Background: tRNA: a 73-nucleotide RNA from Aeoliella straminimaris. A search with the family's covariance model found it, with a score of 64 bits. By type it is a transfer RNA. The base pairs follow the family's consensus structure, which is taken from published work. The source organism's lineage runs through Bacteria, Planctomycetia, Pirellulales, Lacipirellulaceae and Aeoliella.
RNA sequence: GGGGCGGUAGCUCAGUUGGGAGAGCGCUGCGUUCGCAAUGCAGAGGUCGGGAGUUCGACUCUCCUCCGCUCCA
Numbered sequence: 001g002g003g004g005c006g007g008u009a010g011c012u013c014a015g016u017u018g019g020g021a022g023a024g025c026g027c028u029g030c031g032u033u034c035g036c037a038a039u040g041c042a043g044a045g046g047u048c049g050g051g052a053g054u055u056c057g058a059c060u061c062u063c064c065u066c067c068g069c070u071c072c073a
Stems, first nucleotide, its partner, number of pairs: 001072007010025004027043005049065005